[Rfam]
RNA sequence: CAAAUAAACUGUUAGGUGAGACUCCUACGUGAACAUAUGCUAUCGCCCGGAAACAUCCAGAGAUGCCAACGAGUCAAAUAGUUUCCGUCGACAUAAGGCGGCAACCAGAUAGCUAGCUCUAAGCUUACGUCACGUAGUGUUAAAACUGAACGACGAGUAUUAAUG
Dot-bracket structure: .....(.((((([.(((..(((..((((((((......(((((.((.((....((((....))))....)).))......(((...(((......])))...)))...))))).(((.....)))....)))))))).)))...)))..))....))).).....
M-box riboswitch aptamer (ykoK leader): a 165-nucleotide RNA from Lactobacillus apis. About the family: M-box riboswitch, also know as ykoK leader is described as a metaloregulatory RNA that sense divalent metals and function as a genetic control element of genes related to divalent metal transport in bacteria. Pairs were carried over by alignment from the consensus structure. Lineage of the source: Bacteria > Bacilli > Lactobacillales > Lactobacillaceae > Lactobacillus. Rfam 15.1 lists 1,095 matches to the family in 932 species.